About this RNA:
BsrC: an 84-nucleotide sequence from Latilactobacillus sakei.
[Rfam]
RNA sequence: UCUCGUUUAAACAGCGUAAGCCGCCUCUUUACACUACUUGUAACUCCAGGGUUACUCCAGUUGAUUAAAGUCUUCAAACAAUAC
Numbered sequence: 001u002c003u004c005g006u007u008u009a010a011a012c013a014g015c016g017u018a019a020g021c022c023g024c025c026u027c028u029u030u031a032c033a034c035u036a037c038u039u040g041u042a043a044c045u046c047c048a049g050g051g052u053u054a055c056u057c058c059a060g061u062u063g064a065u066u067a068a069a070g071u072c073u074u075c076a077a078a079c080a081a082u083a084c
Stems, first nucleotide, its partner, number of pairs: 034063001037060002040055006
The family's consensus secondary structure was predicted with CMfinder.
Rfam describes the family as follows. The 301 nucleotide sequence from Kouji Nakamura has been trimmed to a highly conserved ~85 nucleotide long core to form this family.
A search with the family's covariance model found it, with a score of 38 bits.